[Rfam]
RNA sequence: UCCUAGCCCAGAUGGGAAUGAAAAUCCUUUUGGAUUGAACGGUAUUUUUUCUUGACUAAAAAAAGCGACUGGAAGAAGCUCUUUUUUGGUCUUAGAAAAAAACAGUUUCAAACCAAAAGAUUGUAAUGUACAGCUGGAUAAUGC
Numbered sequence: 001u002c003c004u005a006g007c008c009c010a011g012a013u014g015g016g017a018a019u020g021a022a023a024a025u026c027c028u029u030u031u032g033g034a035u036u037g038a039a040c041g042g043u044a045u046u047u048u049u050u051c052u053u054g055a056c057u058a059a060a061a062a063a064a065g066c067g068a069c070u071g072g073a074a075g076a077a078g079c080u081c082u083u084u085u086u087u088g089g090u091c092u093u094a095g096a097a098a099a100a101a102a103c104a105g106u107u108u109c110a111a112a113c114c115a116a117a118a119g120a121u122u123g124u125a126a127u128g129u130a131c132a133g134c135u136g137g138a139u140a141a142u143g144c
Base pairs, nucleotide, nucleotide: 009136010135011134013132014131018127019126023122024121025120026119029117030116031115032114033113035111036110037109038108039107
RNA: Flavo-1 RNA
Organism: Flavobacterium succinicans